RNA: C. elegans snoRNA ceN100
RNA sequence: GUGCGAGGUCCAGAGUCACCUUUGAGAAUAGGUAUCUUCUUGGUGCUAGGAUAGCUCGAAAAUUAAAUUGGGACUUUAUGCAAACAGUUUUUGCCUUAUGCUCAUCUGUUUCACCUCCGUUUCGAACACU
Dot-bracket structure: ...((((((((..((.((((....(.(.......).)....)))))).))))..))))..........(((..(....((.((((.(.(...((.....))..).).)))))).....)..)))......
Numbered sequence: 001g002u003g004c005g006a007g008g009u010c011c012a013g014a015g016u017c018a019c020c021u022u023u024g025a026g027a028a029u030a031g032g033u034a035u036c037u038u039c040u041u042g043g044u045g046c047u048a049g050g051a052u053a054g055c056u057c058g059a060a061a062a063u064u065a066a067a068u069u070g071g072g073a074c075u076u077u078a079u080g081c082a083a084a085c086a087g088u089u090u091u092u093g094c095c096u097u098a099u100g101c102u103c104a105u106c107u108g109u110u111u112c113a114c115c116u117c118c119g120u121u122u123c124g125a126a127c128a129c130u
Stems, first nucleotide, its partner, number of pairs: 004058004008052004014047002017045004025037001027035001069124003074119001079113002082111004087106001089104001093101002